[Rfam]
RNA: c-di-GMP-I riboswitch aptamer
Organism: Tissierella sp. P1
RNA sequence: AUAUUUCCUCGGCAAAGUUAAGGAAACUUAGCGACGCAAAGCUUGAGUCUAAGGUUAUCCAAUAGGAUAAUGAUGAUCGUUCAGCUGCAUAA
Numbered sequence: 001a002u003a004u005u006u007c008c009u010c011g012g013c014a015a016a017g018u019u020a021a022g023g024a025a026a027c028u029u030a031g032c033g034a035c036g037c038a039a040a041g042c043u044u045g046a047g048u049c050u051a052a053g054g055u056u057a058u059c060c061a062a063u064a065g066g067a068u069a070a071u072g073a074u075g076a077u078c079g080u081u082c083a084g085c086u087g088c089a090u091a092a
Stems, first nucleotide, its partner, number of pairs: 012037002017032006040086004045082002047077003054071007